[Rfam]
Nucleotides: 072
Stems, first nucleotide, its partner, number of pairs: 003068007011061006022050004027046004
Number, partner (000 for none) and nucleotide at each position: 001000c002000c003068g004067g005066g006065c007064c008063g009062a010000g011061g012060u013059u014058c015057u016056g017000u018000c019000c020000u021000a022050c023049a024048c025047u026000c027046g028045g029044c030043u031000g032000u033000g034000g035000c036000u037000c038000u039000g040000g041000g042000c043030a044029g045028u046027c047025a048024g049023u050022g051000c052000a053000u054000c055000a056016c057015a058014g059013a060012a061011c062009u063008c064007g065006g066005u067004c068003c069000c070000g071000g072000u
mir-148/mir-152 microRNA precursor family: a 72-nucleotide RNA from Drymodes brunneopygia. NCBI's taxonomy places the organism under Eukaryota, Eumetazoa, Archelosauria, Theropoda, Drymodes. For this family Rfam cites "Identification of tissue-specific microRNAs from mouse" (Lagos-Quintana et al., Curr Biol, 2002). The base pairs follow the family's consensus structure, which was predicted with RNAalifold. The match comes from Rfam's covariance-model search (55 bits). Rfam links the family to the GO terms RISC complex and miRNA-mediated post-transcriptional gene silencing.